[Rfam]
RNA sequence: ACAUGCUACUAGGGGUGCCCUAAUGAGGGCUGAGAGGAAAACCGUUGUUUUCUAACUCUUAUGGACCUGAUCUGGUUAAUACCAGCGUAGGGAAGUAGUCGGAGAGCUCA
Numbered sequence: 001a002c003a004u005g006c007u008a009c010u011a012g013g014g015g016u017g018c019c020c021u022a023a024u025g026a027g028g029g030c031u032g033a034g035a036g037g038a039a040a041a042c043c044g045u046u047g048u049u050u051u052c053u054a055a056c057u058c059u060u061a062u063g064g065a066c067c068u069g070a071u072c073u074g075g076u077u078a079a080u081a082c083c084a085g086c087g088u089a090g091g092g093a094a095g096u097a098g099u100c101g102g103a104g105a106g107c108u109c110a
Base pairs, nucleotide, nucleotide: 006098007097008096009095010094011059012058013057014056017030018029019028020027021026037052038051039050040049041048066091067090068089069088072085073084074083075082

Annotation: The family of this 110-nucleotide RNA from Cerasibacillus quisquiliarum is "TPP riboswitch aptamer (THI element)". The source organism's lineage runs through Bacteria, Bacillati, Bacillota, Caryophanales and Cerasibacillus. Gene Ontology term of the family: thiamine pyrophosphate binding. The family's consensus secondary structure is taken from published work.